[Rfam]
RNA: Small nucleolar RNA F1/F2/snoR5a
Organism: Phtheirospermum japonicum
RNA sequence: UUAUGCCCAUGGUAUCUAAUGUCCAGAAUGGUUUUGAGUAUCUGGACAUUUUGUUUUUGGGCAGAAAUAAACAUGGAAACAGGCCUUGCGACACAGUAGCUUUAUUUUCUAUAAGCUUUCUGUUACUAUAAUCCUGCUUACAUAU
Numbered sequence: 001u002u003a004u005g006c007c008c009a010u011g012g013u014a015u016c017u018a019a020u021g022u023c024c025a026g027a028a029u030g031g032u033u034u035u036g037a038g039u040a041u042c043u044g045g046a047c048a049u050u051u052u053g054u055u056u057u058u059g060g061g062c063a064g065a066a067a068u069a070a071a072c073a074u075g076g077a078a079a080c081a082g083g084c085c086u087u088g089c090g091a092c093a094c095a096g097u098a099g100c101u102u103u104a105u106u107u108u109c110u111a112u113a114a115g116c117u118u119u120c121u122g123u124u125a126c127u128a129u130a131a132u133c134c135u136g137c138u139u140a141c142a143u144a145u
Stems, first nucleotide, its partner, number of pairs: 004063006018050010030039001078138001080136003093123004098117004